Annotation
The family of this 118-nucleotide sequence from Thalassomonas actiniarum is "Phenylalanine leader peptide". The family's RNA type in Rfam is cis-regulatory leader. Pairs were carried over by alignment from the consensus structure, which was predicted with CMfinder.
RNA sequence: UACUAUGAACAGCAACAUCCUCUUUAGCUUCUUUUUUACUCUGCCUGGUCGGAGGGGUUAACGUCGCAAAGAAGAAGUAAAGACGAUGAAAACCUCCUCUACGGGAGGUUUUUUUUUG
Numbered sequence: 001u002a003c004u005a006u007g008a009a010c011a012g013c014a015a016c017a018u019c020c021u022c023u024u025u026a027g028c029u030u031c032u033u034u035u036u037u038a039c040u041c042u043g044c045c046u047g048g049u050c051g052g053a054g055g056g057g058u059u060a061a062c063g064u065c066g067c068a069a070a071g072a073a074g075a076a077g078u079a080a081a082g083a084c085g086a087u088g089a090a091a092a093c094c095u096c097c098u099c100u101a102c103g104g105g106a107g108g109u110u111u112u113u114u115u116u117u118g
Stems, first nucleotide, its partner, number of pairs: 016088004021083006028077008037068001039066001044055003057062001089112010
Dot-bracket structure: ...............((((.((((((.((((((((.(.(....(((......))).(....)...).).)))))))))))))).))))((((((((((....))))))))))......